The record is a 90-nucleotide RNA sequence from Aquaspirillum sp. LM1, which matches "Neisseria metabolic switch regulator b (RcoF1/NgncR163)" in Rfam. Sibling sRNA described and independently named in three publications. The source organism's lineage runs through Bacteria, Pseudomonadota, Betaproteobacteria, Neisseriales and Aquaspirillum. The literature on the family includes a 2017 paper in Nucleic Acids Res by Heidrich et al., "The primary transcriptome of Neisseria meningitidis and its interaction with the RNA chaperone Hfq".

RNA sequence: UUGUUGAGAUGCAGCAAUUGCUUCUUGAUAGUUUCUCCUCUAUUUCUCCUUUGUAGAUUGAAGCGCGGGUCGCAAGCCCCGCGCUUUUUU
Number, nucleotide and partner (000 for none) at each position: 001u000002u000003g029004u028005u027006g026007a025008g024009a023010u000011g021012c000013a000014g000015c000016a000017a000018u000019u000020g000021c011022u000023u009024c008025u007026u006027g005028a004029u003030a000031g000032u000033u000034u000035c000036u000037c000038c000039u057040c056041u055042a054043u053044u000045u000046c000047u000048c000049c000050u000051u000052u000053g043054u042055a041056g040057a039058u000059u000060g000061a000062a000063g084064c083065g082066c081067g080068g079069g078070u000071c076072g000073c000074a000075a000076g071077c000078c069079c068080c067081g066082c065083g064084c063085u000086u000087u000088u000089u000090u000